[Rfam]
The record is a 311-nucleotide RNA from Spinacia oleracea, which matches "Plant signal recognition particle RNA" in Rfam. The family's consensus secondary structure is taken from published work. NCBI's taxonomy places the organism under Eukaryota, Streptophyta, Tracheophyta, Amaranthaceae, Spinacia.

RNA sequence: GCCCGGUUAUACACGAUAUAAUUGGAUACUAACCCGAGUGGGGACACUAAGGUGACGGGACAGGAAUUCAAUUGACUGGAUCGGGUCUAAAGUUGGCAUGGUGUUGGCCCGCCCUAUCCAAGUUGGGAGUUGGUUCAUGUGGGUCUGGCGAAGGCUUGAUCUUCAUGGGCCCUAAAGUGGAGGGGACCGCGUGAGGCUGGUUUCACAGAGCAACGAAAACCUCCCGCUCUUGUCAGUGGAAGGAUAACGGGCUUGGCCUCUUAGGCCCAAUAGUAUCCAGUUGAAUGAUCCUCCAUUGGACCGUCAUUUUU
Numbered sequence: 001g002c003c004c005g006g007u008u009a010u011a012c013a014c015g016a017u018a019u020a021a022u023u024g025g026a027u028a029c030u031a032a033c034c035c036g037a038g039u040g041g042g043g044a045c046a047c048u049a050a051g052g053u054g055a056c057g058g059g060a061c062a063g064g065a066a067u068u069c070a071a072u073u074g075a076c077u078g079g080a081u082c083g084g085g086u087c088u089a090a091a092g093u094u095g096g097c098a099u100g101g102u103g104u105u106g107g108c109c110c111g112c113c114c115u116a117u118c119c120a121a122g123u124u125g126g127g128a129g130u131u132g133g134u135u136c137a138u139g140u141g142g143g144u145c146u147g148g149c150g151a152a153g154g155c156u157u158g159a160u161c162u163u164c165a166u167g168g169g170c171c172c173u174a175a176a177g178u179g180g181a182g183g184g185g186a187c188c189g190c191g192u193g194a195g196g197c198u199g200g201u202u203u204c205a206c207a208g209a210g211c212a213a214c215g216a217a218a219a220c221c222u223c224c225c226g227c228u229c230u231u232g233u234c235a236g237u238g239g240a241a242g243g244a245u246a247a248c249g250g251g252c253u254u255g256g257c258c259u260c261u262u263a264g265g266c267c268c269a270a271u272a273g274u275a276u277c278c279a280g281u282u283g284a285a286u287g288a289u290c291c292u293c294c295a296u297u298g299g300a301c302c303g304u305c306a307u308u309u310u311u
Stems, first nucleotide, its partner, number of pairs: 001045001003043001004024008033042003049310010061298002063294003068288003073283009083268008092260001095258002104255001106253006113243002117240004122234001124232007132171008141162005147156003172177001179224005190215003197208003